[Rfam]
RNA sequence: AUGUCUAAAUUCGCAAGGCUGGUACAGUGAAACUGCGAAUGGCUUAUUAAAUCAGUUAUGGUUCCUCACUCCUCUCCUACUUGGAUAACUGUGGUAAUGCUAGAGCUAAUGCAUGCUGACGGGUGCUGACCCCCUUUGUGGGGGGAUGCGUGCAUUUAUCAGAUCAAAACCAACGCGGUCAGCCUCCCUCUGGCCCCGGCUUGGGGGUGGGCCCUGGCGGCUUUGGCGACUCUAGAUAACCUCUGGCCAAUCUUGCACGCCCCCUUGAUGGUGACAACCCAUUCAAACGUCUGCCCUAUCAACUUUUUUUUUUUUUUUUUUUACGCGGGCCUAUCACCGUUGUGGCCUCUCCCGUUGCGGAGCACAGUCUCCAGACGCGCAGGCUCAGAGGCCAUGGCUCACCGGCCCAGCCGCUCCGCGGCACGUGGGAUCUUCCCUGACCGGUGCACGAACCCGUGUCCCCUGCAUCGGCAGGAAGACUCUCAACCACUGCGCCACCAGGGAAGCCCUGCCCUAUCAACUUUUGAUGAUAGUUGCCAUGCCUAUCAUGGUGACCACGGGUGACGGGGAAUCAGGGUUCGAUUCCGGAGA
Numbered sequence: 001a002u003g004u005c006u007a008a009a010u011u012c013g014c015a016a017g018g019c020u021g022g023u024a025c026a027g028u029g030a031a032a033c034u035g036c037g038a039a040u041g042g043c044u045u046a047u048u049a050a051a052u053c054a055g056u057u058a059u060g061g062u063u064c065c066u067c068a069c070u071c072c073u074c075u076c077c078u079a080c081u082u083g084g085a086u087a088a089c090u091g092u093g094g095u096a097a098u099g100c101u102a103g104a105g106c107u108a109a110u111g112c113a114u115g116c117u118g119a120c121g122g123g124u125g126c127u128g129a130c131c132c133c134c135u136u137u138g139u140g141g142g143g144g145g146a147u148g149c150g151u152g153c154a155u156u157u158a159u160c161a162g163a164u165c166a167a168a169a170c171c172a173a174c175g176c177g178g179u180c181a182g183c184c185u186c187c188c189u190c191u192g193g194c195c196c197c198g199g200c201u202u203g204g205g206g207g208u209g210g211g212c213c214c215u216g217g218c219g220g221c222u223u224u225g226g227c228g229a230c231u232c233u234a235g236a237u238a239a240c241c242u243c244u245g246g247c248c249a250a251u252c253u254u255g256c257a258c259g260c261c262c263c264c265u266u267g268a269u270g271g272u273g274a275c276a277a278c279c280c281a282u283u284c285a286a287a288c289g290u291c292u293g294c295c296c297u298a299u300c301a302a303c304u305u306u307u308u309u310u311u312u313u314u315u316u317u318u319u320u321u322u323a324c325g326c327g328g329g330c331c332u333a334u335c336a337c338c339g340u341u342g343u344g345g346c347c348u349c350u351c352c353c354g355u356u357g358c359g360g361a362g363c364a365c366a367g368u369c370u371c372c373a374g375a376c377g378c379g380c381a382g383g384c385u386c387a388g389a390g391g392c393c394a395u396g397g398c399u400c401a402c403c404g405g406c407c408c409a410g411c412c413g414c415u416c417c418g419c420g421g422c423a424c425g426u427g428g429g430a431u432c433u434u435c436c437c438u439g440a441c442c443g444g445u446g447c448a449c450g451a452a453c454c455c456g457u458g459u460c461c462c463c464u465g466c467a468u469c470g471g472c473a474g475g476a477a478g479a480c481u482c483u484c485a486a487c488c489a490c491u492g493c494g495c496c497a498c499c500a501g502g503g504a505a506g507c508c509c510u511g512c513c514c515u516a517u518c519a520a521c522u523u524u525u526g527a528u529g530a531u532a533g534u535u536g537c538c539a540u541g542c543c544u545a546u547c548a549u550g551g552u553g554a555c556c557a558c559g560g561g562u563g564a565c566g567g568g569g570a571a572u573c574a575g576g577g578u579u580c581g582a583u584u585c586c587g588g589a590g591a
Base pairs, nucleotide, nucleotide: 003036004035008034010032015028043590044589045588053511054510055509059505062504063503064502065501066500080115082113083112089105090104092102093101094100123151124150125149126148130144131143132142133141134140156239157238158237159236160235170226171225172224205214206213207212513561514560515559520552521551522550527549528548529547530546531545532544533543565587566586567585568584569580570579571578572577

A member of the RNA family "Eukaryotic small subunit ribosomal RNA" from Phocoena sinus, 591 nucleotides of a longer RNA. Gene Ontology terms of the family: ribosome and structural constituent of ribosome. Clan: SSU clan. It scores 1528 bits against the family's covariance model. Lineage of the source: Eukaryota > Opisthokonta > Eutheria > Whippomorpha > Phocoena.